This 41-nucleotide sequence from Nocardia stercoris belongs to the Rfam family "L31-Actinobacteria ribosomal protein leader". Rfam classes the family as a cis-regulatory leader. It scores 50 bits against the family's covariance model.

RNA sequence: UCGGUUCCGGUUCACGUCCGCUGUGCGGGCGACCCGGCGCC
Numbered sequence: 001u002c003g004g005u006u007c008c009g010g011u012u013c014a015c016g017u018c019c020g021c022u023g024u025g026c027g028g029g030c031g032a033c034c035c036g037g038c039g040c041c
Stems, first nucleotide, its partner, number of pairs: 003041003007037004015031007